[Rfam]
RNA sequence: UUCUUAUCAAGAGAGGUGGAGGGACUGGCCCUACGAAGCCCGGCAACCGGUAUUAAACGCGGUGCUAAUUCCAGCAGAGCAAUGGCUCUGGUAGAUAAGAA
Dot-bracket structure: ((((((((....(.(((...(((.[[[[)))......))))((((.(((.(....).)..))))))...(]]]]((((((....))))))..)))))))))
SAM riboswitch aptamer (S box leader): a 101-nucleotide sequence from Cytobacillus depressus. The SAM riboswitch is found upstream of a number of genes which code for proteins involved in methionine or cysteine biosynthesis in Gram-positive bacteria. The base pairs follow the family's consensus structure, which is taken from published work. The source organism's lineage runs through Bacteria, Bacillati, Bacilli, Bacillaceae and Cytobacillus.